[Rfam]
RNA sequence: AGCUGAUCGAUGCGGACCUCCCUCCCGGUUCGCGUUCCAGCUGUUCCCCUCUGGAGGUUUGACCUCCACACCUCAAGGGCCGCGGCUUCCGCUGGCCCUUUUUU
Dot-bracket structure: (((((......((((..............))))....))))).........(((((((...))))))).......((((((((((...)))).)))))).....
Shown here is a 104-nucleotide sequence from Pseudorhizobium pelagicum, a member of the family "Alphaproteobacterial ar15". Pairs were carried over by alignment from the consensus structure. Gene Ontology term of the family: protein binding. The family has 61 seed sequences and 316 matches in Rfam 15.1.